Source information: Rfam assigns this 82-nucleotide RNA sequence from Merluccius polli to the family "mir-181 microRNA precursor family". The match comes from Rfam's covariance-model search (60 bits). On this family, see Ambros, Cell 2001: "microRNAs: tiny regulators with great potential". The family's consensus secondary structure was predicted with PFOLD.
RNA sequence: GGGUCACAAUCAACAUUCAUUGCUGUCGCUGGGUUGGACUGUGUGGAAAAGCUCACUGAACAAUGAGUGCAACUGUGGCCCA
Numbered sequence: 001g002g003g004u005c006a007c008a009a010u011c012a013a014c015a016u017u018c019a020u021u022g023c024u025g026u027c028g029c030u031g032g033g034u035u036g037g038a039c040u041g042u043g044u045g046g047a048a049a050a051g052c053u054c055a056c057u058g059a060a061c062a063a064u065g066a067g068u069g070c071a072a073c074u075g076u077g078g079c080c081c082a
Base pairs, nucleotide, nucleotide: 002081003080004078005077006076007075008074014069015068016067017066018065019064020063021062022061026059027058028057030055031054033052034051035050